[Rfam]
RNA sequence: UUCAACGGUUACAGAAGAUGAAAAACUGUAACUGGGAUUAAAAUGGGAACAUUUGUAAAAAAGAAUAAACUAAACAAUAGUUCCAAGUGGUUUACAUUUGGACAAAAAAUUAGACCGUAGUUAAAAGCUGC
Numbered sequence: 001u002u003c004a005a006c007g008g009u010u011a012c013a014g015a016a017g018a019u020g021a022a023a024a025a026c027u028g029u030a031a032c033u034g035g036g037a038u039u040a041a042a043a044u045g046g047g048a049a050c051a052u053u054u055g056u057a058a059a060a061a062a063g064a065a066u067a068a069a070c071u072a073a074a075c076a077a078u079a080g081u082u083c084c085a086a087g088u089g090g091u092u093u094a095c096a097u098u099u100g101g102a103c104a105a106a107a108a109a110u111u112a113g114a115c116c117g118u119a120g121u122u123a124a125a126a127g128c129u130g131c
Base pairs, nucleotide, nucleotide: 006034007033008032009031010030011029012028013027014026043118044117045116046115051066052065053064054063080103081102083101084100085099086098087097088096089095
RNA: Streptococcus sRNA SpR18
Organism: Peptoniphilus duerdenii